The family of this 126-nucleotide sequence from Medicago truncatula is "U11 spliceosomal RNA". It is annotated as a spliceosomal small nuclear RNA. The match comes from Rfam's covariance-model search (81 bits). The family's consensus secondary structure is taken from published work.
[Rfam]
Nucleotides: 126
Base pairs, nucleotide, nucleotide: 008078009077010076011075012074014028015027016026017025029049030048031047032046033045034044035043036042037041050073051072052071053070054069055068056067098122099121100120101119102118103117104116105115106114107113
Number, partner (000 for none) and nucleotide at each position: 001000a002000a003000a004000a005000a006000g007000g008078g009077u010076c011075a012074g013000u014028u015027g016026g017025c018000u019000a020000a021000a022000u023000a024000u025017g026016c027015c028014a029049c030048g031047c032046u033045c034044a035043u036042c037041a038000u039000g040000a041037u042036g043035a044034u045033g046032a047031g048030u049029g050073c051072u052071g053070u054069a055068u056067g057000g058000c059000u060000a061000u062000c063000a064000a065000g066000a067056c068055a069054u070053a071052u072051g073050g074012c075011u076010g077009a078008c079000a080000u081000a082000a083000u084000u085000u086000u087000u088000g089000u090000a091000a092000a093000u094000c095000a096000a097000u098122a099121g100120g101119g102118u103117u104116g105115g106114u107113u108000c109000g110000u111000u112000u113107a114106g115105c116104c117103g118102a119101c120100c121099c122098u123000c124000c125000a126000u